[Rfam]
RNA sequence: GUCCAGAAAACAAUGAUGCAUUAAUUUCCAAGCACAUAGCUGAUGAUUCCAUGUGGAUUUCAACUACUCUGAGUUUUCUGGAC
Numbered sequence: 001g002u003c004c005a006g007a008a009a010a011c012a013a014u015g016a017u018g019c020a021u022u023a024a025u026u027u028c029c030a031a032g033c034a035c036a037u038a039g040c041u042g043a044u045g046a047u048u049c050c051a052u053g054u055g056g057a058u059u060u061c062a063a064c065u066a067c068u069c070u071g072a073g074u075u076u077u078c079u080g081g082a083c
Base pairs, nucleotide, nucleotide: 001083002082003081004080005079006078008076009075010074011073